[Rfam]
RNA sequence: AUAUAAGAGAAAACUUACCUUUUAGAUACAUUGGGUAACUAAUUUAUCUGACCUAUAAUAUAGGCUAGAUACAUUAGUUACUCAAUGUAUCUAAAAAGUAAACUUUCCCUUAUAU
Numbered sequence: 001a002u003a004u005a006a007g008a009g010a011a012a013a014c015u016u017a018c019c020u021u022u023u024a025g026a027u028a029c030a031u032u033g034g035g036u037a038a039c040u041a042a043u044u045u046a047u048c049u050g051a052c053c054u055a056u057a058a059u060a061u062a063g064g065c066u067a068g069a070u071a072c073a074u075u076a077g078u079u080a081c082u083c084a085a086u087g088u089a090u091c092u093a094a095a096a097a098g099u100a101a102a103c104u105u106u107c108c109c110u111u112a113u114a115u
Stems, first nucleotide, its partner, number of pairs: 002114006009107004015101004020096006027089017049067002052064001
Source information
A member of the RNA family "MIR2593 microRNA precursor family" from Trifolium pratense, 115 nucleotides long. The source organism's lineage runs through Eukaryota, Embryophyta, Hologalegina, Trifolieae and Trifolium. The base pairs follow the family's consensus structure, which was predicted with RNAalifold.